The record is a 75-nucleotide RNA sequence from Streptomyces marincola, which matches "ASpks TB sRNA" in Rfam. NCBI's taxonomy places the organism under Bacteria, Bacillati, Actinomycetota, Actinomycetes, Streptomyces. Rfam 15.1 lists 9,052 matches to the family in 683 species. The family's consensus secondary structure is taken from published work. The match comes from Rfam's covariance-model search (83 bits).
RNA sequence: CUUCAGCGAGCCGAGCCACAGCGGCCGGUCCUCGGGCCGGUCCUGCCCGUAAGUGGCGAUGAGCGCCUGGGCUUC
Numbered sequence: 001c002u003u004c005a006g007c008g009a010g011c012c013g014a015g016c017c018a019c020a021g022c023g024g025c026c027g028g029u030c031c032u033c034g035g036g037c038c039g040g041u042c043c044u045g046c047c048c049g050u051a052a053g054u055g056g057c058g059a060u061g062a063g064c065g066c067c068u069g070g071g072c073u074u075c
Stems, first nucleotide, its partner, number of pairs: 015025003031071003038065002044059001047056003